[Rfam]
RNA sequence: ACACAAGGAAGGAGGUGGUCCGCGAAAUUGAUAGCUUCAUGGACAUGUGAGGUGGCUGGGCGCUAGCUGCGCCGGCUUUCGAAGAGCCGGCGUUAUUUGUGCGCUGGCGAAUUCCCCGUAGUCACCCGGCCCCCGAGCUUCGGGUUGUUGUCCGACCAGGAACACGGCUCGGGGGCCGCUCCAU
Numbered sequence: 001a002c003a004c005a006a007g008g009a010a011g012g013a014g015g016u017g018g019u020c021c022g023c024g025a026a027a028u029u030g031a032u033a034g035c036u037u038c039a040u041g042g043a044c045a046u047g048u049g050a051g052g053u054g055g056c057u058g059g060g061c062g063c064u065a066g067c068u069g070c071g072c073c074g075g076c077u078u079u080c081g082a083a084g085a086g087c088c089g090g091c092g093u094u095a096u097u098u099g100u101g102c103g104c105u106g107g108c109g110a111a112u113u114c115c116c117c118g119u120a121g122u123c124a125c126c127c128g129g130c131c132c133c134c135g136a137g138c139u140u141c142g143g144g145u146u147g148u149u150g151u152c153c154g155a156c157c158a159g160g161a162a163c164a165c166g167g168c169u170c171g172g173g174g175g176c177c178g179c180u181c182c183a184u
Base pairs, nucleotide, nucleotide: 016058017057018056019055061109062108063107064106065105066104067103069102070101071100072099074097075096127178128177129176130175131174132173133172134171135170136169137168138167139166140160141159143157144156145155
Shown here is a 184-nucleotide sequence from Mycobacterium avium, a member of the family "Actinobacteria sRNA Ms_IGR-5". The organism belongs to Mycobacterium avium subsp. paratuberculosis, within Bacteria. The pairing is the family consensus, mapped onto this sequence.